[Rfam]
RNA sequence: CCUUGCCUGGAUCGGGUUUCGCGGCGAACGGGCUUCCACCAUGAUGAAUAGCAGUUCGUUGUCGACGAAACCUGCACAUUGCAAGG
Dot-bracket structure: ((((((......(((((((((........(((((..................)))))........)))))))))......))))))

The family of this 86-nucleotide RNA from Aedes aegypti is "mir-981 microRNA precursor family". For this family Rfam cites "Bioinformatic prediction, deep sequencing of microRNAs and expression analysis during phenotypic plasticity in the pea aphid, Acyrthosiphon pisum" (Legeai et al., BMC Genomics, 2010). Its family is annotated with RISC complex and miRNA-mediated post-transcriptional gene silencing in the Gene Ontology. The family has 17 seed sequences and 180 matches in Rfam 15.1.